[Rfam]
RNA sequence: UUGCAGCUAAUUAAGCCGGCCGGGACCCCUCCCGCCGUGGGCUCCCGGCGUGCACUGGCUGCGCACAGCGACCCCCCCCGGCUGUGUAGGGCGCCCCGGCCGCCCCCCUCGGCGCGGCGCCCCAAGGGGCCGGGGGUACAGCC
Numbered sequence: 001u002u003g004c005a006g007c008u009a010a011u012u013a014a015g016c017c018g019g020c021c022g023g024g025a026c027c028c029c030u031c032c033c034g035c036c037g038u039g040g041g042c043u044c045c046c047g048g049c050g051u052g053c054a055c056u057g058g059c060u061g062c063g064c065a066c067a068g069c070g071a072c073c074c075c076c077c078c079c080g081g082c083u084g085u086g087u088a089g090g091g092c093g094c095c096c097c098g099g100c101c102g103c104c105c106c107c108c109u110c111g112g113c114g115c116g117g118c119g120c121c122c123c124a125a126g127g128g129g130c131c132g133g134g135g136g137u138a139c140a141g142c143c
Base pairs, nucleotide, nucleotide: 002054003053004052005051019049020048021047022046025043027041028040080131081130082129092119093118094117095116
RNA: Small nucleolar RNA SNORA70